[Rfam]
RNA: ZMP/ZTP riboswitch aptamer (pfl RNA motif)
RNA sequence: AAGAGUUUUGCCGACUGACGGAUAUGUGGAAAACCACAGGGGAAGCAGAACUUUGAAAAGCCGACCGUCUGGGCAGUAUAU
Numbered sequence: 001a002a003g004a005g006u007u008u009u010g011c012c013g014a015c016u017g018a019c020g021g022a023u024a025u026g027u028g029g030a031a032a033a034c035c036a037c038a039g040g041g042g043a044a045g046c047a048g049a050a051c052u053u054u055g056a057a058a059a060g061c062c063g064a065c066c067g068u069c070u071g072g073g074c075a076g077u078a079u080a081u
Base pairs, nucleotide, nucleotide: 003053004052005051006050007049008048009047010046011045015041016040017069018068019067020066021065026037027036028035029034060074061073062072